[Rfam]
Shown here is a 130-nucleotide RNA from Bos taurus, a member of the family "Small nucleolar RNA SNORA20".
Its Rfam clan is "SNORA20 clan".
Rfam 15.1 lists 437 matches to the family in 157 species.
It scores 73 bits against the family's covariance model.
Rfam classes the family as an H/ACA-box small nucleolar RNA.
Pairs were carried over by alignment from the consensus structure, which was predicted with ILM.
Taxonomically the source falls in Bos (Eukaryota, Bilateria, Amniota, Mammalia).
Rfam's curators write: ACA20 is a member of the H/ACA class of snoRNA that guide the sites of modification of uridines to pseudouridines.

Nucleotides: 130
Base pairs, nucleotide, nucleotide: 003058006055007054008053015045016044017043023037024036025035026034069124070123071122072121073120074119075118078116079115081113086109087108088107089106090105091104092103093102094101095100
Number, partner (000 for none) and nucleotide at each position: 001000u002000a003058u004000a005000a006055u007054a008053u009000u010000a011000a012000g013000u014000a015045a016044u017043u018000a019000a020000a021000a022000a023037u024036a025035u026034c027000c028000u029000u030000c031000a032000g033000u034026g035025a036024u037023a038000u039000g040000a041000g042000c043017a044016g045015u046000u047000a048000u049000a050000c051000g052000c053008a054007u055006g056000g057000g058003a059000u060000a061000a062000a063000a064000c065000a066000a067000u068000a069124c070123u071122g072121g073120g074119c075118c076000c077000u078116u079115g080000u081113a082000a083000a084000u085000g086109g087108a088107g089106g090105u091104g092103a093102a094101g095100u096000u097000a098000c099000c100095a101094u102093u103092u104091c105090a106089u107088c108087u109086c110000u111000u112000c113081u114000c115079c116078a117000u118075g119074g120073u121072c122071u123070a124069g125000a126000c127000a128000u129000u130000g